[Rfam]
RNA: Small nucleolar RNA R16
Organism: Oryza brachyantha
RNA sequence: GCAGGCAAGUGAUGUGAAAAUAUAUAUGCUAGACACUCAUUGGAUUUUUCCAUGUGUGGACCAAUAAUCUCCGCUUAUUAUCUGAUGCCUCU
Numbered sequence: 001g002c003a004g005g006c007a008a009g010u011g012a013u014g015u016g017a018a019a020a021u022a023u024a025u026a027u028g029c030u031a032g033a034c035a036c037u038c039a040u041u042g043g044a045u046u047u048u049u050c051c052a053u054g055u056g057u058g059g060a061c062c063a064a065u066a067a068u069c070u071c072c073g074c075u076u077a078u079u080a081u082c083u084g085a086u087g088c089c090u091c092u
Stems, first nucleotide, its partner, number of pairs: 003090005